[Rfam]
RNA: Plant signal recognition particle RNA
RNA sequence: UCUGGGCAGCGUAGCGGCUGUCUGUGACCCGAGCGGGAGUAAGAGAGAUGGAAGCUGGGACUCUCGCAGAGGACCGCUGGGAUCAUGUCGAAGGCACGUCCACUCGAAGCGCGGAGUCUCUGAUCUGGACUCCUCGGCGGAAGCCAGGGGAGUCUGGGGAGAUAAUGUGGAGGGCACAGCGUGAGGCGGGAGACCGAGCAGCGAUCACUUCCUGCUCUGCGCAGUCGAGGGACCGCGUGCUUGAAUGCUUGCCAGCGAUCAUCCGACGUGAGGAGCUUCCUGCAACCUCUCUC
Number, nucleotide and partner (000 for none) at each position: 001u000002c039003u038004g023005g022006g021007c020008a019009g018010c017011g000012u000013a000014g000015c000016g000017g010018c009019u008020g007021u006022c005023u004024g000025u000026g000027a000028c037029c036030c035031g000032a000033g000034c000035g030036g029037g028038a003039g002040u000041a000042a000043g293044a292045g291046a290047g289048a288049u000050g287051g286052a000053a000054g283055c282056u000057g279058g278059g276060a000061c000062u273063c272064u271065c270066g269067c268068a000069g000070a000071g264072g263073a262074c000075c257076g256077c255078u254079g253080g252081g000082a250083u000084c000085a000086u244087g000088u000089c000090g000091a000092a242093g241094g240095c239096a238097c237098g236099u235100c231101c230102a000103c229104u228105c227106g226107a225108a000109g222110c221111g220112c219113g218114g217115a216116g215117u214118c000119u000120c161121u160122g000123a000124u158125c157126u156127g155128g154129a153130c152131u151132c150133c149134u148135c147136g145137g144138c143139g000140g000141a000142a000143g138144c137145c136146a000147g135148g134149g133150g132151a131152g130153u129154c128155u127156g126157g125158g124159g000160a121161g120162a000163u000164a000165a000166u000167g000168u000169g212170g211171a210172g209173g208174g000175c000176a000177c000178a205179g000180c203181g202182u201183g000184a000185g000186g000187c196188g195189g194190g000191a000192g000193a000194c189195c188196g187197a000198g000199c000200a000201g182202c181203g180204a000205u178206c000207a000208c173209u172210u171211c170212c169213u000214g117215c116216u115217c114218u113219g112220c111221g110222c109223a000224g000225u107226c106227g105228a104229g103230g101231g100232a000233c000234c000235g099236c098237g097238u096239g095240c094241u093242u092243g000244a086245a000246u000247g000248c000249u000250u082251g000252c080253c079254a078255g077256c076257g075258a000259u000260c000261a000262u073263c072264c071265g000266a000267c000268g067269u066270g065271a064272g063273g062274a000275g000276c059277u000278u058279c057280c000281u000282g055283c054284a000285a000286c051287c050288u048289c047290u046291c045292u044293c043